[Rfam]
RNA: SAH (S-adenosyl-L-homocysteine) riboswitch aptamer
RNA sequence: CGCUUCGAGGAGCGCUGCAACGGGCCUUUUGCCCGCCAGGCUCGAAGACGGGGCGCUAUUUGCACAACGGCGCUCACUCAAG
Numbered sequence: 001c002g003c004u005u006c007g008a009g010g011a012g013c014g015c016u017g018c019a020a021c022g023g024g025c026c027u028u029u030u031g032c033c034c035g036c037c038a039g040g041c042u043c044g045a046a047g048a049c050g051g052g053g054c055g056c057u058a059u060u061u062g063c064a065c066a067a068c069g070g071c072g073c074u075c076a077c078u079c080a081a082g
Base pairs, nucleotide, nucleotide: 003047004046005045006044007043008042021035022034023033024032025031